[Rfam]
RNA: Pseudoknot of upstream pseudoknot domain (UPD) of the 3'UTR
RNA sequence: CGUGGUCUUCACGAUAGAAGA
Numbered sequence: 001c002g003u004g005g006u007c008u009u010c011a012c013g014a015u016a017g018a019a020g021a
Stems, first nucleotide, its partner, number of pairs: 001013003006021005